Shown here is a 73-nucleotide RNA sequence from Austrofundulus limnaeus, a member of the family "mir-21 microRNA precursor family".
RNA sequence: CGUCAGCUAGCUUAUCAGACUGGUGUUGGCAGUGAUGUUAAUAAGGCAACAGCGGUCUGUAAGCUGGCUGAAG
Numbered sequence: 001c002g003u004c005a006g007c008u009a010g011c012u013u014a015u016c017a018g019a020c021u022g023g024u025g026u027u028g029g030c031a032g033u034g035a036u037g038u039u040a041a042u043a044a045g046g047c048a049a050c051a052g053c054g055g056u057c058u059g060u061a062a063g064c065u066g067g068c069u070g071a072a073g
Stems, first nucleotide, its partner, number of pairs: 008066008018057005024051005030045001

The match comes from Rfam's covariance-model search (69 bits). Rfam links the family to the GO terms RISC complex and miRNA-mediated post-transcriptional gene silencing. Pairs were carried over by alignment from the consensus structure, which was predicted with RNAalifold. The family has 41 seed sequences and 777 matches in Rfam 15.1.